[Rfam]
RNA: Selenocysteine transfer RNA
Organism: Methanotorris igneus
RNA sequence: GGCGCAGGGUACUGGGCUUGGUAGCCCAGGGCGGACUUCAGAUCCGUCGAGUUCCGUUGGGAACUCGGGGUUCGAUUCCCCCCCUGCGCC
Number, nucleotide and partner (000 for none) at each position: 001g090002g089003c088004g087005c086006a085007g084008g083009g082010u000011a000012c029013u028014g027015g026016g025017c024018u000019u000020g000021g000022u000023a000024g017025c016026c015027c014028a013029g012030g048031g047032c046033g045034g044035a043036c000037u000038u000039c000040a000041g000042a000043u035044c034045c033046g032047u031048c030049g000050a065051g064052u063053u062054c061055c000056g000057u000058u000059g000060g000061g054062a053063a052064c051065u050066c000067g081068g080069g079070g078071u000072u000073c000074g000075a000076u000077u000078c070079c069080c068081c067082c009083c008084c007085u006086g005087c004088g003089c002090c001